[Rfam]
RNA sequence: UUGAAGAUAGUGGGAGAGAGAUUUUUAGAUAAAUCCACCGAAGAAGUAAAUCUUUCAGGUAUUAGGACCGCUAUUGGACG
Numbered sequence: 001u002u003g004a005a006g007a008u009a010g011u012g013g014g015a016g017a018g019a020g021a022u023u024u025u026u027a028g029a030u031a032a033a034u035c036c037a038c039c040g041a042a043g044a045a046g047u048a049a050a051u052c053u054u055u056c057a058g059g060u061a062u063u064a065g066g067a068c069c070g071c072u073a074u075u076g077g078a079c080g
Base pairs, nucleotide, nucleotide: 006075007074008073009072010071011070012069013068020035021034022033023032037060038059039058040056041055044054045053046052
RNA: Glycine riboswitch aptamer